[Rfam]
Record summary
Na+ riboswitch aptamer (DUF1646): a 57-nucleotide sequence from Pelotomaculum propionicicum.

RNA sequence: AGUUGGACGUACCAAGUCGGUUCGUUUUCAAGGUAAAGGCUUCUGGGGUGGGAAGUC
Numbered sequence: 001a002g003u004u005g006g007a008c009g010u011a012c013c014a015a016g017u018c019g020g021u022u023c024g025u026u027u028u029c030a031a032g033g034u035a036a037a038g039g040c041u042u043c044u045g046g047g048g049u050g051g052g053a054a055g056u057c
Stems, first nucleotide, its partner, number of pairs: 003031003006026004011021001038057007
Its family is annotated with sodium ion binding and regulation of gene expression in the Gene Ontology. Taxonomically the source falls in Pelotomaculum (Bacteria, Bacillati, Clostridia, Desulfotomaculaceae). A search with the family's covariance model found it, with a score of 44 bits.